[Rfam]
RNA: DUF805b RNA
RNA sequence: AAUGGGGAAGCCGAAAACCAAUUUAAGAGUAGGCG
Numbered sequence: 001a002a003u004g005g006g007g008a009a010g011c012c013g014a015a016a017a018c019c020a021a022u023u024u025a026a027g028a029g030u031a032g033g034c035g
Base pairs, nucleotide, nucleotide: 003020004019005018010034011033012032